[Rfam]
RNA: glmS glucosamine-6-phosphate activated ribozyme aptamer
RNA sequence: AUUAAAAAAGAAGCGCCAGGACUCUAUUAGAGUUGACGAGGACCAGAUUUAUCGAAAGAUUCGGCGGAUGAUCUGGAGGUAUGAUGCUACCUAAACGAUGAGCAAAAAUAAUGAGUAAUCAUUAAACAAAUAUCAUCAGGCAUAACU
Numbered sequence: 001a002u003u004a005a006a007a008a009a010g011a012a013g014c015g016c017c018a019g020g021a022c023u024c025u026a027u028u029a030g031a032g033u034u035g036a037c038g039a040g041g042a043c044c045a046g047a048u049u050u051a052u053c054g055a056a057a058g059a060u061u062c063g064g065c066g067g068a069u070g071a072u073c074u075g076g077a078g079g080u081a082u083g084a085u086g087c088u089a090c091c092u093a094a095a096c097g098a099u100g101a102g103c104a105a106a107a108a109u110a111a112u113g114a115g116u117a118a119u120c121a122u123u124a125a126a127c128a129a130a131u132a133u134c135a136u137c138a139g140g141c142a143u144a145a146c147u
Base pairs, nucleotide, nucleotide: 020034021033022032023031024030025029043076044075045074046073047072052064053063054062055061077092078091079090080089081088097137098136099135100134101133109124110123111122112121113120114119
Dot-bracket structure: ...................((((((...))))))........(((((....((((.....)))).......)))))(((((......)))))....(((((.......((((((....))))))........)))))..........